This 127-nucleotide RNA sequence from Peronospora effusa belongs to the Rfam family "U11 spliceosomal RNA". The base pairs follow the family's consensus structure, which is taken from published work. Lineage of the source: Eukaryota > Sar > Oomycota > Peronosporales > Peronospora.

Nucleotides: 127
Stems, first nucleotide, its partner, number of pairs: 008078005013023002016020001024049005032044004050073007096126001098125007107117001109115002
Number, partner (000 for none) and nucleotide at each position: 001000a002000a003000a004000a005000a006000g007000g008078g009077c010076a011075g012074g013023c014022c015000c016020a017000u018000u019000u020016u021000a022014g023013g024049c025048g026047c027046a028045a029000a030000a031000u032044g033043g034042a035041c036000g037000u038000u039000a040000c041035g042034u043033c044032c045028u046027u047026g048025c049024g050073g051072u052071g053070a054069a055068u056067c057000g058000c059000g060000a061000u062000c063000a064000g065000g066000a067056g068055a069054u070053u071052u072051g073050c074012c075011c076010u077009g078008c079000a080000u081000a082000a083000u084000u085000u086000c087000u088000g089000a090000a091000a092000u093000g094000c095000c096126g097000c098125g099124u100123g101122g102121a103120a104119u105000g106000g107117g108000c109115u110114c111000g112000u113000a114110g115109g116000c117107c118000a119104a120103u121102u122101c123100c124099a125098c126096c127000g